About this RNA:
The record is a 147-nucleotide RNA from Erwinia tasmaniensis, which matches "Leucine operon leader" in Rfam.
RNA sequence: AUGAGGUCUGAACCAAUGAUUCGUUUCAACCGCCUACUCGGCCUACUACUUAACGCAUUCCUAAUGCGCGGUAGGCUUGUGGGCGGAAUCAAUCACUGAUUCAGACUUGCAAAACUAAGAAACCCGCGCCGAUGCGCGGGUUUUUUU
Number, nucleotide and partner (000 for none) at each position: 001a000002u000003g000004a108005g000006g106007u105008c104009u103010g102011a000012a100013c000014c098015a000016a097017u095018g094019a093020u000021u000022c000023g000024u000025u000026u000027c000028a000029a000030c086031c085032g084033c083034c082035u081036a080037c079038u000039c000040g000041g000042c000043c000044u000045a000046c074047u073048a072049c071050u070051u000052a000053a000054c068055g067056c066057a065058u000059u000060c000061c000062u000063a000064a000065u057066g056067c055068g054069c000070g050071g049072u048073a047074g046075g000076c000077u000078u000079g037080u036081g035082g034083g033084c032085g031086g030087a000088a000089u000090c000091a000092a000093u019094c018095a017096c000097u016098g014099a000100u012101u000102c010103a009104g008105a007106c006107u000108u004109g000110c000111a000112a000113a000114a000115c000116u000117a000118a000119g144120a143121a142122a141123c140124c139125c138126g137127c136128g135129c134130c000131g000132a000133u000134g129135c128136g127137c126138g125139g124140g123141u122142u121143u120144u119145u000146u000147u000
Gene Ontology term of the family: leucine biosynthetic process. At least 6 amino acid operons are known to be regulated by attenuation. In each a leader sequence of 150-200 bp is found upstream of the first gene in the operon. For this family Rfam cites "Attenuation in amino acid biosynthetic operons" (Kolter and Yanofsky, Annu Rev Genet, 1982). The family's consensus secondary structure is taken from published work. It scores 104 bits against the family's covariance model.